[Rfam]
RNA sequence: ACAAACAAUCCCUUUACAACGGAUCGUGAGGCACGUACCUGCCUCUGAAAGGAUUAGUAA
Numbered sequence: 001a002c003a004a005a006c007a008a009u010c011c012c013u014u015u016a017c018a019a020c021g022g023a024u025c026g027u028g029a030g031g032c033a034c035g036u037a038c039c040u041g042c043c044u045c046u047g048a049a050a051g052g053a054u055u056a057g058u059a060a
Stems, first nucleotide, its partner, number of pairs: 010052002013049004028045006
RNA: msiK RNA